[Rfam]
RNA sequence: UCGUUCAUAACUUUAUAGGCUCGUAUAAUCGCAGGGAUAUGGCCUGCAAGUUUCUACCGGACUGCCGUAAAUGGUCUGACUACGAGUGACGCUAAAAACUGC
Number, nucleotide and partner (000 for none) at each position: 001u000002c000003g000004u000005u000006c000007a000008u000009a000010a000011c000012u000013u000014u000015a000016u000017a000018g000019g087020c086021u085022c084023g083024u082025a081026u000027a000028a000029u049030c000031g047032c046033a045034g044035g043036g000037a000038u000039a000040u000041g000042g000043c035044c034045u033046g032047c031048a000049a029050g000051u000052u000053u000054c000055u000056a000057c000058c078059g077060g076061a075062c074063u073064g072065c000066c000067g000068u000069a000070a000071a000072u064073g063074g062075u061076c060077u059078g058079a000080c000081u025082a024083c023084g022085a021086g020087u019088g000089a000090c000091g000092c000093u000094a000095a000096a000097a000098a000099c000100u000101g000102c000
RNA: Purine riboswitch aptamer
Organism: Fictibacillus aquaticus